[Rfam]
RNA sequence: AUGGAUCUUCGGGGUAAGGUGAAAUUCCUGACCGGCGGUGAACGUCCUUUGUACCAAAGCGACGUCAAGCCCGCGACUCCUGCUUUUCGACCGUUUUGAAAGGCAGCGACUGACCUGGUGGGAUUCCAGGGCCGACGGUAAAGUCCGGAUGGGAGAAGAUCAAU
Dot-bracket structure: ...(((((((......(((.......))).[[((((((..............................[[))))...((............................))....(((((.......)))))]])).(((....]]))).......)))))))...